Rfam assigns this 117-nucleotide sequence from Dethiosulfatarculus sandiegensis to the family "ALIL pseudoknot". The family's RNA type in Rfam is cis-regulatory element. The family's consensus secondary structure is taken from published work.

RNA sequence: GGCGUUUUUCGCCCAGGCGGAGCUCGACCGCCUACGGAAGUGAUGGUUUUCUUUAUCGACACUCAACGCCAGGUCCACGAGGUCGAGCCGAUCUGCGCGAUGCUGCCGAUCGCCCCC
Number, nucleotide and partner (000 for none) at each position: 001g000002g000003c000004g000005u000006u000007u000008u000009u000010c000011g000012c000013c000014c000015a000016g032017g031018c030019g029020g028021a000022g000023c000024u000025c000026g000027a000028c020029c019030g018031c017032c016033u000034a000035c000036g000037g000038a000039a000040g000041u000042g000043a000044u000045g000046g000047u000048u000049u000050u000051c000052u000053u000054u000055a000056u000057c000058g000059a000060c000061a000062c000063u000064c000065a000066a000067c000068g000069c000070c000071a000072g000073g000074u000075c000076c000077a000078c000079g116080a000081g114082g113083u000084c000085g000086a000087g000088c000089c112090g111091a000092u109093c108094u000095g106096c105097g104098c000099g000100a000101u000102g000103c000104u097105g096106c095107c000108g093109a092110u000111c090112g089113c082114c081115c000116c079117c000